Notes: Shown here is a 102-nucleotide sequence from Ornithinibacillus bavariensis, a member of the family "Purine riboswitch aptamer". It scores 80 bits against the family's covariance model. Gene Ontology term of the family: purine nucleobase biosynthetic process. The organism belongs to Ornithinibacillus, within Bacteria.

[Rfam]
RNA sequence: UUAAUAUUGUUUUACGCCAUUCGUAUAUCCUCGAUAAUAUGGUUCGAAAGUUUCUACCGGGGCACCGUAAAUGCCCUGACUAUGAAGGCGGAAUGUCUAGGU
Numbered sequence: 001u002u003a004a005u006a007u008u009g010u011u012u013u014a015c016g017c018c019a020u021u022c023g024u025a026u027a028u029c030c031u032c033g034a035u036a037a038u039a040u041g042g043u044u045c046g047a048a049a050g051u052u053u054c055u056a057c058c059g060g061g062g063c064a065c066c067g068u069a070a071a072u073g074c075c076c077u078g079a080c081u082a083u084g085a086a087g088g089c090g091g092a093a094u095g096u097c098u099a100g101g102u
Stems, first nucleotide, its partner, number of pairs: 018088001020086006031047004058078007